Overview
The family of this 175-nucleotide RNA sequence from Roseburia hominis is "Lysine riboswitch aptamer".
[Rfam]
RNA sequence: UAUUUUGAUAGAGGUUGCGUGCUUUAAGAGUAGUUUUCCGGAUGUGACAGGCACAGGGGAAGGGAAGCAAAAGGAAAGCAUGCCGAAAGAGCAAGGCACCUGCUGCCCUGGUUCUUGGGCAUAAAGCUAAGAACUUUAUGACUGUCAUCUUUGCAGAUGGGGCGCUAUCGGUUCU
Numbered sequence: 001u002a003u004u005u006u007g008a009u010a011g012a013g014g015u016u017g018c019g020u021g022c023u024u025u026a027a028g029a030g031u032a033g034u035u036u037u038c039c040g041g042a043u044g045u046g047a048c049a050g051g052c053a054c055a056g057g058g059g060a061a062g063g064g065a066a067g068c069a070a071a072a073g074g075a076a077a078g079c080a081u082g083c084c085g086a087a088a089g090a091g092c093a094a095g096g097c098a099c100c101u102g103c104u105g106c107c108c109u110g111g112u113u114c115u116u117g118g119g120c121a122u123a124a125a126g127c128u129a130a131g132a133a134c135u136u137u138a139u140g141a142c143u144g145u146c147a148u149c150u151u152u153g154c155a156g157a158u159g160g161g162g163c164g165c166u167a168u169c170g171g172u173u174c175u
Base pairs, nucleotide, nucleotide: 006170007169008168009167010166011165017083018082019081020080021079022078023077024076025075033068034067035066036065037064038063039062087116088115089114090113091112092111094109095108096107117143118142120140121139122138123137124136125135126134145160146159147158148157149156150155
A reference for the family is Rodionov et al. (2003), "Regulation of lysine biosynthesis and transport genes in bacteria: yet another RNA riboswitch?", Nucleic Acids Res. The base pairs follow the family's consensus structure, which is taken from published work. A search with the family's covariance model found it, with a score of 107 bits. The organism belongs to Roseburia hominis, within Bacteria.